Shown here is a 130-nucleotide sequence from Chinchilla lanigera, a member of the family "Small nucleolar RNA SNORA61".
Its family is annotated with RNA processing and nucleolus in the Gene Ontology.
The family's RNA type in Rfam is H/ACA-box small nucleolar RNA.
Lineage of the source: Eukaryota > Metazoa > Craniata > Euarchontoglires > Chinchilla.
Pairs were carried over by alignment from the consensus structure, which was predicted with PFOLD.
RNA sequence: ACCCUCCAGUUCCCUUUCUUGUUGGAUCCGAACACUGGUCUUGCGGGGUCGUAAGGGAGGAAAAGGAAUGCUGAAUGGCUUCACAGCCUUAUUGUCUGGUAUAUAGCAUGUGGGCUAGUUUCAAACGGGG
Numbered sequence: 001a002c003c004c005u006c007c008a009g010u011u012c013c014c015u016u017u018c019u020u021g022u023u024g025g026a027u028c029c030g031a032a033c034a035c036u037g038g039u040c041u042u043g044c045g046g047g048g049u050c051g052u053a054a055g056g057g058a059g060g061a062a063a064a065g066g067a068a069u070g071c072u073g074a075a076u077g078g079c080u081u082c083a084c085a086g087c088c089u090u091a092u093u094g095u096c097u098g099g100u101a102u103a104u105a106g107c108a109u110g111u112g113g114g115c116u117a118g119u120u121u122c123a124a125a126c127g128g129g130g
Stems, first nucleotide, its partner, number of pairs: 003060005019048002022045001023043001025040004076117006090108001092106001